[Rfam]
RNA sequence: CAACACAACGGCAAUGGAUUUCUGCCGCCCCUUUACGGGGAAACCGCCGGUCGCGAGACUUGCUGAUGAUUCCUACUUGGUG
Numbered sequence: 001c002a003a004c005a006c007a008a009c010g011g012c013a014a015u016g017g018a019u020u021u022c023u024g025c026c027g028c029c030c031c032u033u034u035a036c037g038g039g040g041a042a043a044c045c046g047c048c049g050g051u052c053g054c055g056a057g058a059c060u061u062g063c064u065g066a067u068g069a070u071u072c073c074u075a076c077u078u079g080g081u082g
Stems, first nucleotide, its partner, number of pairs: 010026004016073003020069002046063002049060004
Record summary:
The family of this 82-nucleotide RNA from Ereboglobus luteus is "Fluoride riboswitch aptamer (crcB RNA motif)". The organism belongs to Ereboglobus, within Bacteria.